[Rfam]
Clostridiales-1 RNA: a 213-nucleotide RNA sequence from Catenibacillus scindens. The source organism's lineage runs through Bacteria, Bacillati, Clostridia, Lachnospirales and Catenibacillus.

RNA sequence: UGAGACAAGCGACAAAAGGUCAUAAUUUUCAUGCUUGCAUGAAAAUUUAUGACUUUGUGGCGCGUAAAACACCGAAAAGGAGCCAUUUUUCGUAGAAAAAUGUGCGGAUUUGAGGUGUUUUAGGGCGCUGGGCGUCCGGGGGACGGCCGCUUAGCGCCGACCGAAGCGGAGCGAAGACGCGAAAAUACGAAGUGCGGAGCAAUCCGUGUCUCA
Numbered sequence: 001u002g003a004g005a006c007a008a009g010c011g012a013c014a015a016a017a018g019g020u021c022a023u024a025a026u027u028u029u030c031a032u033g034c035u036u037g038c039a040u041g042a043a044a045a046u047u048u049a050u051g052a053c054u055u056u057g058u059g060g061c062g063c064g065u066a067a068a069a070c071a072c073c074g075a076a077a078a079g080g081a082g083c084c085a086u087u088u089u090u091c092g093u094a095g096a097a098a099a100a101u102g103u104g105c106g107g108a109u110u111u112g113a114g115g116u117g118u119u120u121u122a123g124g125g126c127g128c129u130g131g132g133c134g135u136c137c138g139g140g141g142g143a144c145g146g147c148c149g150c151u152u153a154g155c156g157c158c159g160a161c162c163g164a165a166g167c168g169g170a171g172c173g174a175a176g177a178c179g180c181g182a183a184a185a186u187a188c189g190a191a192g193u194g195c196g197g198a199g200c201a202a203u204c205c206g207u208g209u210c211u212c213a
Base pairs, nucleotide, nucleotide: 001213002212003211004210005209006208007207010062011061013059016056017055018054019053020052021051022050023049024048025047028044029042030041031040032039033038066121067120068119069118070117071116072115073114076111077110078109082105083104084102085101086100087099088098089097090096091095123205124204125203129199134195